Source information: Bacterial large subunit ribosomal RNA: a 248-nucleotide part of an RNA from Sulfurimonas aquatica. Gene Ontology terms of the family: ribosome and structural constituent of ribosome. It scores 2822 bits against the family's covariance model. NCBI's taxonomy places the organism under Bacteria, Campylobacterota, Epsilonproteobacteria, Sulfurimonadaceae, Sulfurimonas.
RNA sequence: GGAUUGUUGAGGAGAGUUGACCCUAGUACGAGAGGACCGGGUUGAACGUGCCACUGGUGCACCAGUUGUUCUGCCAAGAGCAUCGCUGGGUAGCUACGCACGGAUGAGAUAACCGCUGAAAGCAUCUAAGCGGGAAGCCAACUCCAAGAUGAACAAUCCCUGAAGUACGCUUGAAGACUACAAGCUUGAUAGGCUGGGUGUGUACGCAUCGCAAGAUGUUUAGCUGACCAGUACUAAUAGUACGUUCG
Numbered sequence: 001g002g003a004u005u006g007u008u009g010a011g012g013a014g015a016g017u018u019g020a021c022c023c024u025a026g027u028a029c030g031a032g033a034g035g036a037c038c039g040g041g042u043u044g045a046a047c048g049u050g051c052c053a054c055u056g057g058u059g060c061a062c063c064a065g066u067u068g069u070u071c072u073g074c075c076a077a078g079a080g081c082a083u084c085g086c087u088g089g090g091u092a093g094c095u096a097c098g099c100a101c102g103g104a105u106g107a108g109a110u111a112a113c114c115g116c117u118g119a120a121a122g123c124a125u126c127u128a129a130g131c132g133g134g135a136a137g138c139c140a141a142c143u144c145c146a147a148g149a150u151g152a153a154c155a156a157u158c159c160c161u162g163a164a165g166u167a168c169g170c171u172u173g174a175a176g177a178c179u180a181c182a183a184g185c186u187u188g189a190u191a192g193g194c195u196g197g198g199u200g201u202g203u204a205c206g207c208a209u210c211g212c213a214a215g216a217u218g219u220u221u222a223g224c225u226g227a228c229c230a231g232u233a234c235u236a237a238u239a240g241u242a243c244g245u246u247c248g
Stems, first nucleotide, its partner, number of pairs: 001159008011145004017045007047102005055096003062089005067082006108138001113133005162245001165243004169185005190236003193232005200224001206219005
Clan: LSU clan.